[Rfam]
RNA sequence: CCAGAGUGGAAAUGUUGACCUGGUUGGACUAGAGUCUCUGAGCUUUCCUCUGAGGAUCUUUAUAACCACCUGAUCCACUCCUC
Numbered sequence: 001c002c003a004g005a006g007u008g009g010a011a012a013u014g015u016u017g018a019c020c021u022g023g024u025u026g027g028a029c030u031a032g033a034g035u036c037u038c039u040g041a042g043c044u045u046u047c048c049u050c051u052g053a054g055g056a057u058c059u060u061u062a063u064a065a066c067c068a069c070c071u072g073a074u075c076c077a078c079u080c081c082u083c
Stems, first nucleotide, its partner, number of pairs: 003082002006079001007077003018074001020072001022070003026066001031059003035055004040050003

Rfam assigns this 83-nucleotide RNA sequence from Orycteropus afer to the family "Small nucleolar RNA ZL8".
Rfam classes the family as a C/D-box small nucleolar RNA.
A reference for the family is Kishore et al. (2013), "Insights into snoRNA biogenesis and processing from PAR-CLIP of snoRNA core proteins and small RNA sequencing", Genome Biol.
The base pairs follow the family's consensus structure, which was predicted with RNAfold.
Lineage of the source: Eukaryota > Vertebrata > Euteleostomi > Amniota > Orycteropus afer.